[Rfam]
RNA: eL15-Euryarchaeota ribosomal protein leader
Organism: Halorhabdus tiamatea
RNA sequence: CCUGUUUAGGCAGGACGGAAUGUGGCCGCCUCGCGGCUGAACCACCCA
Number, nucleotide and partner (000 for none) at each position: 001c014002c013003u012004g011005u010006u000007u000008a000009g000010g005011c004012a003013g002014g001015a000016c000017g043018g042019a000020a000021u000022g000023u000024g038025g037026c036027c035028g034029c000030c000031u000032c000033g000034c028035g027036g026037c025038u024039g000040a000041a000042c018043c017044a000045c000046c000047c000048a000